[Rfam]
Shown here is a 147-nucleotide RNA sequence from Clytia hemisphaerica, a member of the family "U8 small nucleolar RNA". A search with the family's covariance model found it, with a score of 43 bits. Rfam links the family to the GO terms RNA processing and nucleolus. A reference for the family is Peculis (1997), "The sequence of the 5' end of the U8 small nucleolar RNA is critical for 5.8S and 28S rRNA maturation", Mol Cell Biol.

RNA sequence: UCAUCAGUAUAGGUGUAAUCCUUACCUGUAGAUGACUGUUUUGUCAUCUAUAGUAAGGUGGAUGAUGAUCAUGGGGCUGAAUGACUUGUAUGAGUUAAAAGCUUCGGACCUUGGUGCUGCAACACACCUCGCGUUCCCAUGACUGAC
Numbered sequence: 001u002c003a004u005c006a007g008u009a010u011a012g013g014u015g016u017a018a019u020c021c022u023u024a025c026c027u028g029u030a031g032a033u034g035a036c037u038g039u040u041u042u043g044u045c046a047u048c049u050a051u052a053g054u055a056a057g058g059u060g061g062a063u064g065a066u067g068a069u070c071a072u073g074g075g076g077c078u079g080a081a082u083g084a085c086u087u088g089u090a091u092g093a094g095u096u097a098a099a100a101g102c103u104u105c106g107g108a109c110c111u112u113g114g115u116g117c118u119g120c121a122a123c124a125c126a127c128c129u130c131g132c133g134u135u136c137c138c139a140u141g142a143c144u145g146a147c
Base pairs, nucleotide, nucleotide: 026053027052028051030049031048032047033046034045035044083102086099087098106136107135108134109133111131113129114128
Dot-bracket structure: .........................(((.((((((........)))))).))).............................(..((..........))..)...((((.(.((.............)).).))))...........